[Rfam]
RNA sequence: UCAUCUUGGUCGGGGUGCCCUUUGUGGGCUGAGAUUACACCCGUUGAACCUGAUCCGGCUUAUACCGGCGUAGGAAUAUCGAGACAUGCUUAUU
Number, nucleotide and partner (000 for none) at each position: 001u000002c000003a000004u000005c000006u082007u081008g080009g079010u078011c043012g042013g041014g040015g000016u037017g029018c028019c027020c026021u000022u000023u000024g000025u000026g020027g019028g018029c017030u000031g000032a000033g000034a000035u000036u000037a016038c000039a000040c014041c013042c012043g011044u000045u000046g000047a000048a000049c074050c073051u072052g071053a000054u000055c068056c067057g066058g065059c000060u000061u000062a000063u000064a000065c058066c057067g056068g055069c000070g000071u052072a051073g050074g049075a000076a000077u000078a010079u009080c008081g007082a006083g000084a000085c000086a000087u000088g000089c000090u000091u000092a000093u000094u000
RNA: TPP riboswitch aptamer (THI element)